A member of the RNA family "Archaeal large subunit ribosomal RNA" from Haloglomus irregulare, 359 nucleotides of a longer RNA. The base pairs follow the family's consensus structure, which is taken from published work. A search with the family's covariance model found it, with a score of 2824 bits. The organism belongs to Haloglomus, within Archaea.
[Rfam]
RNA sequence: CAUAGUAGCAGCGAUAGUCGGGUUAGAAUCCCGACGGCCGAACGAGUAAGGGUUCCUCGGCAAUGUUCCACAGCCGAGGGUUAGCCGGUCCUAAGUCCCGUCGUAAUUCGAGCGGGACAAAAUGGGAAGCUGGUUAAUAUUCCAGCGCUUCCGUACAACGAAAACUGACGCCUUGGGGUCGACCGGACCACGCUUUCGCGUGGUCGAACUGUCAAAAUCCGUGGAAGCCGUAACGGCACGAAGCGGACGAACGGCAGGAUAGCGCAAGCCGGUUCAACCUAGGGCCCGUGAAAAGGUGAGUACGGAAUCCGUACCGAGAUCCGACACAGGUACUCGUGCCAGCGAAAGGCAAGGCCUGU
Numbered sequence: 001c002a003u004a005g006u007a008g009c010a011g012c013g014a015u016a017g018u019c020g021g022g023u024u025a026g027a028a029u030c031c032c033g034a035c036g037g038c039c040g041a042a043c044g045a046g047u048a049a050g051g052g053u054u055c056c057u058c059g060g061c062a063a064u065g066u067u068c069c070a071c072a073g074c075c076g077a078g079g080g081u082u083a084g085c086c087g088g089u090c091c092u093a094a095g096u097c098c099c100g101u102c103g104u105a106a107u108u109c110g111a112g113c114g115g116g117a118c119a120a121a122a123u124g125g126g127a128a129g130c131u132g133g134u135u136a137a138u139a140u141u142c143c144a145g146c147g148c149u150u151c152c153g154u155a156c157a158a159c160g161a162a163a164a165c166u167g168a169c170g171c172c173u174u175g176g177g178g179u180c181g182a183c184c185g186g187a188c189c190a191c192g193c194u195u196u197c198g199c200g201u202g203g204u205c206g207a208a209c210u211g212u213c214a215a216a217a218u219c220c221g222u223g224g225a226a227g228c229c230g231u232a233a234c235g236g237c238a239c240g241a242a243g244c245g246g247a248c249g250a251a252c253g254g255c256a257g258g259a260u261a262g263c264g265c266a267a268g269c270c271g272g273u274u275c276a277a278c279c280u281a282g283g284g285c286c287c288g289u290g291a292a293a294a295g296g297u298g299a300g301u302a303c304g305g306a307a308u309c310c311g312u313a314c315c316g317a318g319a320u321c322c323g324a325c326a327c328a329g330g331u332a333c334u335c336g337u338g339c340c341a342g343c344g345a346a347a348g349g350c351a352a353g354g355c356c357u358g359u
Stems, first nucleotide, its partner, number of pairs: 017035006036356004044335004050315002055079006064072002086311003090125002095118006101111003129146005149307008164297003170285008181274005186205006209257004218247005227237003263268001321330002337351004